[Rfam]
RNA sequence: GGAUCGAUGAUGAUGCCCCAAAAAACAUUCCUUGGAAAAGCUGAACAAAAUGAGUGAGAGCUCUAAUCCGUCACUCUCGUCGUGACUGAGGUCC
Numbered sequence: 001g002g003a004u005c006g007a008u009g010a011u012g013a014u015g016c017c018c019c020a021a022a023a024a025a026c027a028u029u030c031c032u033u034g035g036a037a038a039a040g041c042u043g044a045a046c047a048a049a050a051u052g053a054g055u056g057a058g059a060g061c062u063c064u065a066a067u068c069c070g071u072c073a074c075u076c077u078c079g080u081c082g083u084g085a086c087u088g089a090g091g092u093c094c
Stems, first nucleotide, its partner, number of pairs: 001094005026056005032048003
Shown here is a 94-nucleotide sequence from Cavia porcellus, a member of the family "Small nucleolar RNA SNORD116".
Taxonomically the source falls in Cavia (Eukaryota, Eumetazoa, Euteleostomi, Eutheria).
It is one of the family's seed sequences.
A reference for the family is Cavaille et al. (2000), "Identification of brain-specific and imprinted small nucleolar RNA genes exhibiting an unusual genomic organization", Proc Natl Acad Sci U S A.
Rfam classes the family as a C/D-box small nucleolar RNA.